Rfam assigns this 65-nucleotide sequence from Dactylococcopsis salina to the family "Cyanobacterial functional RNA 1". Rfam classes the family as a small RNA. A search with the family's covariance model found it, with a score of 49 bits. On this family, see Voss et al., BMC Genomics 2007: "A motif-based search in bacterial genomes identifies the ortholog of the small RNA Yfr1 in all lineages of cyanobacteria".
RNA sequence: GCGGAGACAAUCGUUUCCGUUCACUCCUCACACCACACUCCGUCCGGACAGAGUUCGGGCGGCUU
Numbered sequence: 001g002c003g004g005a006g007a008c009a010a011u012c013g014u015u016u017c018c019g020u021u022c023a024c025u026c027c028u029c030a031c032a033c034c035a036c037a038c039u040c041c042g043u044c045c046g047g048a049c050a051g052a053g054u055u056c057g058g059g060c061g062g063c064u065u
Base pairs, nucleotide, nucleotide: 001020002019003018004017005016006015007014008013041061042060043059044058045057046056047055